[Rfam]
RNA: Small nucleolar RNA SNORA26
RNA sequence: UUACCUCUUUCUACGAGACUCAAAGGAUUAAGGCUAACACAGAAAGGUAGAGUAAGCUCUAAAAUCCAGAGAAAAGAUUGUAAAUCUCCUCUUGGAUUCUGUCUGGAGUCACAGCU
Numbered sequence: 001u002u003a004c005c006u007c008u009u010u011c012u013a014c015g016a017g018a019c020u021c022a023a024a025g026g027a028u029u030a031a032g033g034c035u036a037a038c039a040c041a042g043a044a045a046g047g048u049a050g051a052g053u054a055a056g057c058u059c060u061a062a063a064a065u066c067c068a069g070a071g072a073a074a075a076g077a078u079u080g081u082a083a084a085u086c087u088c089c090u091c092u093u094g095g096a097u098u099c100u101g102u103c104u105g106g107a108g109u110c111a112c113a114g115c116u
Stems, first nucleotide, its partner, number of pairs: 002049005008043003017035001019033001021032001056110001057108005066095003070092003075087002079084001
Dot-bracket structure: .(((((.(((......(.(.(..........)).).....))).)))))......((((((....(((.(((..((..(....).))..))))))........))))).)......